[Rfam]
RNA sequence: GACUCGUCGUUGCGAUAGUAAUCCUGCUCAGUACGAGAGGAACCGCAGGUUCGGACAUUUGGUAUACGUACUCGGCCGAUCGGCCGGUGGUGCGAAGCUACCAUCCGUGGGAUUAUGCCUGAACGCCUCUAAGGCAGAAUCCCGUCUAGACACGGCAACGAUACUGUUGGGCCUCCCAUUUGCACGGGGAAGGAUAGUCCUCACGGACUCCAUCCCAGAACAGGGAACCGGCUCUUGGCUAGAAGUGCCUUGAGCUCUCCUUAUCAUUCACUUGGCAGAGUGGAGGCCCAAAUCGUCUGUAGACGACUUAUGUACCGGCCGGGGUGUCGUAAAAGGUAGAGCAACCACCACAUUGCGAUCUUUUGAGACUCAGCCCCUUGACUGGAAGAUUUGU
Numbered sequence: 001g002a003c004u005c006g007u008c009g010u011u012g013c014g015a016u017a018g019u020a021a022u023c024c025u026g027c028u029c030a031g032u033a034c035g036a037g038a039g040g041a042a043c044c045g046c047a048g049g050u051u052c053g054g055a056c057a058u059u060u061g062g063u064a065u066a067c068g069u070a071c072u073c074g075g076c077c078g079a080u081c082g083g084c085c086g087g088u089g090g091u092g093c094g095a096a097g098c099u100a101c102c103a104u105c106c107g108u109g110g111g112a113u114u115a116u117g118c119c120u121g122a123a124c125g126c127c128u129c130u131a132a133g134g135c136a137g138a139a140u141c142c143c144g145u146c147u148a149g150a151c152a153c154g155g156c157a158a159c160g161a162u163a164c165u166g167u168u169g170g171g172c173c174u175c176c177c178a179u180u181u182g183c184a185c186g187g188g189g190a191a192g193g194a195u196a197g198u199c200c201u202c203a204c205g206g207a208c209u210c211c212a213u214c215c216c217a218g219a220a221c222a223g224g225g226a227a228c229c230g231g232c233u234c235u236u237g238g239c240u241a242g243a244a245g246u247g248c249c250u251u252g253a254g255c256u257c258u259c260c261u262u263a264u265c266a267u268u269c270a271c272u273u274g275g276c277a278g279a280g281u282g283g284a285g286g287c288c289c290a291a292a293u294c295g296u297c298u299g300u301a302g303a304c305g306a307c308u309u310a311u312g313u314a315c316c317g318g319c320c321g322g323g324g325u326g327u328c329g330u331a332a333a334a335g336g337u338a339g340a341g342c343a344a345c346c347a348c349c350a351c352a353u354u355g356c357g358a359u360c361u362u363u364u365g366a367g368a369c370u371c372a373g374c375c376c377c378u379u380g381a382c383u384g385g386a387a388g389a390u391u392u393g394u
Stems, first nucleotide, its partner, number of pairs: 006162008016148003021051001023049005052107004060100003067094005072087006109143003116136005170288007290392005295311002299307001316384003320380002322376003326369002333363004338359001341356004
RNA: Eukaryotic large subunit ribosomal RNA, nucleotides 3205 to 3598